The family of this 111-nucleotide sequence from Propionispira arboris is "drum RNA". Pairs were carried over by alignment from the consensus structure, which is taken from published work. Rfam describes the family as follows. Firmicutes, Bacteroidetes (1 example), Proteobacteria (2 examples), Spirochaetes (2 examples).

RNA sequence: UAGUGUUGAUAUAAAGUGUUGUUUCAAGGUGCAGUGCUUUAUGGAGCUCUAUAAGGGUUGAACGUUUACCACAACUUGAAUAGGUAGUAAUGCUGAAAGAAAAUGUUCUAA
Numbered sequence: 001u002a003g004u005g006u007u008g009a010u011a012u013a014a015a016g017u018g019u020u021g022u023u024u025c026a027a028g029g030u031g032c033a034g035u036g037c038u039u040u041a042u043g044g045a046g047c048u049c050u051a052u053a054a055g056g057g058u059u060g061a062a063c064g065u066u067u068a069c070c071a072c073a074a075c076u077u078g079a080a081u082a083g084g085u086a087g088u089a090a091u092g093c094u095g096a097a098a099g100a101a102a103a104u105g106u107u108c109u110a111a
Stems, first nucleotide, its partner, number of pairs: 002048003011042012024079004062106003083094004